[Rfam]
RNA sequence: AGUCAUAUGCUUGUCUCACAGAUUAAGCCAUGCAAGUGAAAGUACAUAUGUAAAUAAUAUAUUGAAACUGCGAACGGCUCAUUAAAACAGUUAUAAUCUACUUGAUGUUUUUAAUAUAAGGAUAACUACGGAAAAUCUGUAGCUAAUACUUGUGAAAAUACCUUUUGAUAUAUACAUAUAUAUAUAUAUGUAUGUAUCAUUAAGGUAUGUAUUUGUUAGAUAUAAGAAUAAAAUAAAUAUAAUUGAAUUAUAACAAAGAAGAAACACAUAAAAUAUGUGUAUUAUCAAUCGAGUAUCUGACCUAUCAGCUUUUGAUGUUAGGGUAUUGACCUAACAUGGCUAUGACGGGUAACGGGGAAUUAGAGUUCGAUUCCGGAGAGGGAGCCUGAGAAAUAGCUACCACAUCUAAGGAAGGCAGCAGGCGCGUAAAUUACCCAAUUCUAAAAAAGAGAGGUAGUGACAAGAAAUAACAAUACAAUAUCGAAAAAUGAUUUUGUAAUUGGAAUGAUAGGAAUUUACAAGGUUCCUAGAGAAACAAUUGGAGGGCAAGUCUGGUGCCAGCAGCCGCGGUAAUUCCAGCUCCAAUAGCAUAUAUUAAAA
Numbered sequence: 001a002g003u004c005a006u007a008u009g010c011u012u013g014u015c016u017c018a019c020a021g022a023u024u025a026a027g028c029c030a031u032g033c034a035a036g037u038g039a040a041a042g043u044a045c046a047u048a049u050g051u052a053a054a055u056a057a058u059a060u061a062u063u064g065a066a067a068c069u070g071c072g073a074a075c076g077g078c079u080c081a082u083u084a085a086a087a088c089a090g091u092u093a094u095a096a097u098c099u100a101c102u103u104g105a106u107g108u109u110u111u112u113a114a115u116a117u118a119a120g121g122a123u124a125a126c127u128a129c130g131g132a133a134a135a136u137c138u139g140u141a142g143c144u145a146a147u148a149c150u151u152g153u154g155a156a157a158a159u160a161c162c163u164u165u166u167g168a169u170a171u172a173u174a175c176a177u178a179u180a181u182a183u184a185u186a187u188a189u190g191u192a193u194g195u196a197u198c199a200u201u202a203a204g205g206u207a208u209g210u211a212u213u214u215g216u217u218a219g220a221u222a223u224a225a226g227a228a229u230a231a232a233a234u235a236a237a238u239a240u241a242a243u244u245g246a247a248u249u250a251u252a253a254c255a256a257a258g259a260a261g262a263a264a265c266a267c268a269u270a271a272a273a274u275a276u277g278u279g280u281a282u283u284a285u286c287a288a289u290c291g292a293g294u295a296u297c298u299g300a301c302c303u304a305u306c307a308g309c310u311u312u313u314g315a316u317g318u319u320a321g322g323g324u325a326u327u328g329a330c331c332u333a334a335c336a337u338g339g340c341u342a343u344g345a346c347g348g349g350u351a352a353c354g355g356g357g358a359a360u361u362a363g364a365g366u367u368c369g370a371u372u373c374c375g376g377a378g379a380g381g382g383a384g385c386c387u388g389a390g391a392a393a394u395a396g397c398u399a400c401c402a403c404a405u406c407u408a409a410g411g412a413a414g415g416c417a418g419c420a421g422g423c424g425c426g427u428a429a430a431u432u433a434c435c436c437a438a439u440u441c442u443a444a445a446a447a448a449g450a451g452a453g454g455u456a457g458u459g460a461c462a463a464g465a466a467a468u469a470a471c472a473a474u475a476c477a478a479u480a481u482c483g484a485a486a487a488a489u490g491a492u493u494u495u496g497u498a499a500u501u502g503g504a505a506u507g508a509u510a511g512g513a514a515u516u517u518a519c520a521a522g523g524u525u526c527c528u529a530g531a532g533a534a535a536c537a538a539u540u541g542g543a544g545g546g547c548a549a550g551u552c553u554g555g556u557g558c559c560a561g562c563a564g565c566c567g568c569g570g571u572a573a574u575u576c577c578a579g580c581u582c583c584a585a586u587a588g589c590a591u592a593u594a595u596u597a598a599a600a
Base pairs, nucleotide, nucleotide: 001596002595003594005593006592007591008590009589010588011587014465015464016463019459020458021425027423028422029421031420032419033418036071037070041069042068043067048063078378079377080376088299089298090297093294094293097292098291103287104286105285106284117152118151119150120149126142127141128140129139130138131137158208159207160206161205162204163203164202213256214255215254216253217252218251227244228243229242235240266280267279268278269277270276301349302348303347308340309339310338315337316336317335318334319333320332321331322330353375354374355373356372357368358367359366360365380401381400383398384397385396403414405412406411431456433455434454435453439451440450441449442448471502472501473500474498475497476496477495478494480492481491482490483489509529510528511526513525514524515523539585540584541583542582543581544580552579553578554577555576561568562567
RNA: Eukaryotic small subunit ribosomal RNA, nucleotides 22 to 621